[Rfam]
RNA: mir-27 microRNA precursor family
RNA sequence: UGCGGUUUCGGGACUUAACCCUCUUGUGAACAGUGUAUUGGACUUCCAUGUUCACAGUGGUUAAGUUCUGCCAUCCUG
Dot-bracket structure: ..........((((((((((.....(((((((................)))))))...))))))))))..........